epsC RNA: a 115-nucleotide RNA from Cohnella lubricantis.
[Rfam]
RNA sequence: AGGUAAUGUCUGCCGCACCUUUAUCACUGCAGGCACUCGGCCAUGCCGUGGGCGCGACCAUGCGCCUUAGACGUCAAUCGUCGCUGGUAUGGCGUGAGGUGGGGUUGAAUGCCCC
Number, nucleotide and partner (000 for none) at each position: 001a020002g019003g018004u017005a000006a000007u035008g034009u033010c032011u031012g030013c029014c000015g000016c000017a004018c003019c002020u001021u000022u000023a000024u000025c000026a000027c000028u000029g013030c012031a011032g010033g009034c008035a007036c098037u097038c096039g095040g093041c092042c091043a090044u089045g088046c087047c086048g000049u000050g067051g066052g065053c064054g063055c062056g000057a000058c000059c000060a000061u000062g055063c054064g053065c052066c051067u050068u000069a000070g082071a081072c080073g079074u000075c000076a000077a000078u000079c073080g072081u071082c070083g000084c000085u000086g047087g046088u045089a044090u043091g042092g041093c040094g000095u039096g038097a037098g036099g000100u000101g115102g114103g113104g112105u111106u000107g000108a000109a000110u000111g105112c104113c103114c102115c101

Record summary: The family's consensus secondary structure is taken from published work.